[Rfam]
RNA sequence: UUCUUUAAAACAAUAAUUGGCAAAUAAAGUAAGAAAGUAAGAUAUUUAGCUGUUUGAUUGAGUAAUAACGCUGCAAUGGCGUAAGACGUUAAGCAAAAUCAAAUAAUUAGCGAGCAGCGAAUAAUUGCUUAUUGGGUCGGGGACUAAUCGUAUUGUUUUAAUAGCUACGGUGCCUCGAUUAAGAACGCUGAAUUUUUAAUCGAAAAAUCAGGUUCACCGAAAAAUAACGCGCCUCUAUACAGUCGACAUCCGCGAGGCUGACGAUCCUGUAAAAGUCACGGGGCCAUCGGUUUACAGUAGCACCAUUUUUUCGUUGCUCUUUAUUGAA
Numbered sequence: 001u002u003c004u005u006u007a008a009a010a011c012a013a014u015a016a017u018u019g020g021c022a023a024a025u026a027a028a029g030u031a032a033g034a035a036a037g038u039a040a041g042a043u044a045u046u047u048a049g050c051u052g053u054u055u056g057a058u059u060g061a062g063u064a065a066u067a068a069c070g071c072u073g074c075a076a077u078g079g080c081g082u083a084a085g086a087c088g089u090u091a092a093g094c095a096a097a098a099u100c101a102a103a104u105a106a107u108u109a110g111c112g113a114g115c116a117g118c119g120a121a122u123a124a125u126u127g128c129u130u131a132u133u134g135g136g137u138c139g140g141g142g143a144c145u146a147a148u149c150g151u152a153u154u155g156u157u158u159u160a161a162u163a164g165c166u167a168c169g170g171u172g173c174c175u176c177g178a179u180u181a182a183g184a185a186c187g188c189u190g191a192a193u194u195u196u197u198a199a200u201c202g203a204a205a206a207a208u209c210a211g212g213u214u215c216a217c218c219g220a221a222a223a224a225u226a227a228c229g230c231g232c233c234u235c236u237a238u239a240c241a242g243u244c245g246a247c248a249u250c251c252g253c254g255a256g257g258c259u260g261a262c263g264a265u266c267c268u269g270u271a272a273a274a275g276u277c278a279c280g281g282g283g284c285c286a287u288c289g290g291u292u293u294a295c296a297g298u299a300g301c302a303c304c305a306u307u308u309u310u311u312c313g314u315u316g317c318u319c320u321u322u323a324u325u326g327a328a
Stems, first nucleotide, its partner, number of pairs: 001013002004010001051105007062094002068089003073080002112319010130299004138177005148170005184214003188211004193206004216291005231284005244263002247260002250257002
RNase E 5' UTR element: a 328-nucleotide RNA sequence from Moellerella wisconsensis. The source organism's lineage runs through Bacteria, Pseudomonadati, Pseudomonadota, Moellerella and Moellerella wisconsensis. It is annotated as a cis-regulatory element. It scores 189 bits against the family's covariance model. For this family Rfam cites "An evolutionarily conserved RNA stem-loop functions as a sensor that directs feedback regulation of RNase E gene expression" (Diwa et al., Genes Dev, 2000). From the family's description: This family represents a conserved element found in the 5' UTR of RNase E mRNA. RNase E is a key regulatory enzyme in the pathway of mRNA degradation in E. coli that is able to auto-regulate the degradation of its own mRNA in response to changes in RNase E activity. This rne 5' UTR element acts as a sensor of cellular RNase E concentration enabling tight regulation of RNase E concentration and synthesis.